[Rfam]
RNA sequence: GUGACAUGUGCUGUGGUUGAAAGUCGAAGCCAGUCGCAGGCAAAGCGAUCCACGUAAGGAAUGGAUGCCAUUCCGAUCAUAGUGCGGCCUAGAAGUAAGACCUGCCGCGAAAAAGCGAGAGGAGCAGUAGUGGGGGACUGAACGUCUAUGAGCGAACCUUCCAGCAGGCGAGUGUGGGGGUAAAAACCAGGUCAGGCAUGUUGA
Numbered sequence: 001g002u003g004a005c006a007u008g009u010g011c012u013g014u015g016g017u018u019g020a021a022a023g024u025c026g027a028a029g030c031c032a033g034u035c036g037c038a039g040g041c042a043a044a045g046c047g048a049u050c051c052a053c054g055u056a057a058g059g060a061a062u063g064g065a066u067g068c069c070a071u072u073c074c075g076a077u078c079a080u081a082g083u084g085c086g087g088c089c090u091a092g093a094a095g096u097a098a099g100a101c102c103u104g105c106c107g108c109g110a111a112a113a114a115g116c117g118a119g120a121g122g123a124g125c126a127g128u129a130g131u132g133g134g135g136g137a138c139u140g141a142a143c144g145u146c147u148a149u150g151a152g153c154g155a156a157c158c159u160u161c162c163a164g165c166a167g168g169c170g171a172g173u174g175u176g177g178g179g180g181u182a183a184a185a186a187c188c189a190g191g192u193c194a195g196g197c198a199u200g201u202u203g204a
Base pairs, nucleotide, nucleotide: 002203003202004201005200006199007198008197009196011195012194013193014189015188016187017186018185027175029173030040033088034087035086036085037084038083049082054077058073059072060071063068080182101168102167103166104165105164106117107116108115121161122160123159124158130153131152136146137145138144
This 204-nucleotide RNA from Megasphaera vaginalis belongs to the Rfam family "raiA RNA". It scores 174 bits against the family's covariance model.